[Rfam]
RNA: mir-493 microRNA precursor family
Organism: Heterocephalus glaber
RNA sequence: CUGGCCUCCAGGGCCUUGUACAUAGUAGGCUUUCAUUCACUCGUUUUCACAUACGGUGAGGGUCUACUGUGUGCCAGGCCCUGUCCAG
Numbered sequence: 001c002u003g004g005c006c007u008c009c010a011g012g013g014c015c016u017u018g019u020a021c022a023u024a025g026u027a028g029g030c031u032u033u034c035a036u037u038c039a040c041u042c043g044u045u046u047u048c049a050c051a052u053a054c055g056g057u058g059a060g061g062g063u064c065u066a067c068u069g070u071g072u073g074c075c076a077g078g079c080c081c082u083g084u085c086c087a088g
Base pairs, nucleotide, nucleotide: 009083010082011081012080013079014078015077016076018074019073020072021071022070023069024068025067026066027065028064029063030062031061032060033059034058035057036056037055